[Rfam]
RNA sequence: CGUGCCGGGGUGGACAGGCCCUACGGCCAACUAACCCUAAUGGCGGCUGUGCCCCUCACGGCCCCCCGCUGUUUUACUCGCUGACUUUCAGCGGGAGAAGGGAGCGGCCCGGGGAAAGGGGGGGAAAAAGAGUUCCGGCCUCAAAAAUGUCAGCGAGGGGGAUCCACACCCCGGCCCACCUUGGGGUCCCCGUCCCUCCCCCGCAAUCGGGGGUGCUCCCGCCGUCGCCCCUCGUGGAGGCCGCGGUCGGCAGGCUCAGCGCCGCUACCGCCGCGAAGAGCUCGUCUCUGUCAGCCUCGGCGGCGGCCGGGACCUGAGGGCCGGCCCGCCCACUCUGGGUAGCCGGGGAACCCCAGCAGAACAAAACGGGUGCGGCGCCGCCGGGCGCUGAGCAGCCGCGGCUCCCUCAGACGUGGGAUCGCGGCCGGCGCCGCCCCGGACACCC
Numbered sequence: 001c002g003u004g005c006c007g008g009g010g011u012g013g014a015c016a017g018g019c020c021c022u023a024c025g026g027c028c029a030a031c032u033a034a035c036c037c038u039a040a041u042g043g044c045g046g047c048u049g050u051g052c053c054c055c056u057c058a059c060g061g062c063c064c065c066c067c068g069c070u071g072u073u074u075u076a077c078u079c080g081c082u083g084a085c086u087u088u089c090a091g092c093g094g095g096a097g098a099a100g101g102g103a104g105c106g107g108c109c110c111g112g113g114g115a116a117a118g119g120g121g122g123g124g125a126a127a128a129a130g131a132g133u134u135c136c137g138g139c140c141u142c143a144a145a146a147a148u149g150u151c152a153g154c155g156a157g158g159g160g161g162a163u164c165c166a167c168a169c170c171c172c173g174g175c176c177c178a179c180c181u182u183g184g185g186g187u188c189c190c191c192g193u194c195c196c197u198c199c200c201c202c203g204c205a206a207u208c209g210g211g212g213g214u215g216c217u218c219c220c221g222c223c224g225u226c227g228c229c230c231c232u233c234g235u236g237g238a239g240g241c242c243g244c245g246g247u248c249g250g251c252a253g254g255c256u257c258a259g260c261g262c263c264g265c266u267a268c269c270g271c272c273g274c275g276a277a278g279a280g281c282u283c284g285u286c287u288c289u290g291u292c293a294g295c296c297u298c299g300g301c302g303g304c305g306g307c308c309g310g311g312a313c314c315u316g317a318g319g320g321c322c323g324g325c326c327c328g329c330c331c332a333c334u335c336u337g338g339g340u341a342g343c344c345g346g347g348g349a350a351c352c353c354c355a356g357c358a359g360a361a362c363a364a365a366a367c368g369g370g371u372g373c374g375g376c377g378c379c380g381c382c383g384g385g386c387g388c389u390g391a392g393c394a395g396c397c398g399c400g401g402c403u404c405c406c407u408c409a410g411a412c413g414u415g416g417g418a419u420c421g422c423g424g425c426c427g428g429c430g431c432c433g434c435c436c437c438g439g440a441c442a443c444c445c
Base pairs, nucleotide, nucleotide: 005174006173007172008171009170010169011168012167019161020160021159022158051105052104054102055101063097065095066094067093068092069091070090071089080154081153082152083151084150085149086147087146088145181356182355183354184353185352186351187350218310219309221307222306223305224304226302227301228300229299242275243274244273245272246271248270249269250268253263254262255261277289278288279287280286369437370436372434373433374432375431376430377429378428379427396424397423398422399421400420403418404417405416406415
Dot-bracket structure: ....((((((((......((((............................((.((.......(.(((((((........[[[[[[[[[))))))).)...)).)).......................................]]].]]]]]]...)))).....))))))))......(((((((..............................((.((((.((((............(((((.(((..(((.....)))....)))))))).((((.....)))).........)))).)))).)).......................................)))))))............((.((((((((................(((((..((((........)))).)))))..)))))))).))........
Vertebrate telomerase RNA: a 445-nucleotide RNA sequence from Pomatostomus ruficeps. Rfam classes the family as a non-coding RNA gene. The family's consensus secondary structure is taken from published work. Telomerase is a ribonucleoprotein reverse transcriptase that synthesises telomeric DNA. Telomerase RNAs differ greatly in sequence and structure between vertebrates, ciliates and yeasts, but they share a 5' pseudoknot structure close to the template sequence. Vertebrate telomerase RNAs have a 3' H/ACA snoRNA-like domain. The family is grouped with related families in Rfam's "Telomerase clan". Lineage of the source: Eukaryota > Opisthokonta > Deuterostomia > Neoaves > Pomatostomus.